[Rfam]
RNA sequence: CCAAAGGCUCUUUUCAGAGCCACCCACGUUUUCCCGAAGAGCGCUGU
Numbered sequence: 001c002c003a004a005a006g007g008c009u010c011u012u013u014u015c016a017g018a019g020c021c022a023c024c025c026a027c028g029u030u031u032u033c034c035c036g037a038a039g040a041g042c043g044c045u046g047u
Stems, first nucleotide, its partner, number of pairs: 006021006
Notes
This 47-nucleotide RNA sequence from Cnephaeus nilssonii belongs to the Rfam family "Histone 3' UTR stem-loop". Gene Ontology term of the family: mRNA 3'-end processing by stem-loop binding and cleavage. A search with the family's covariance model found it, with a score of 37 bits. The literature on the family includes a 2013 paper in Science by Tan et al., "Structure of histone mRNA stem-loop, human stem-loop binding protein, and 3'hExo ternary complex". Rfam classes the family as a cis-regulatory element. Lineage of the source: Eukaryota > Metazoa > Bilateria > Euteleostomi > Cnephaeus.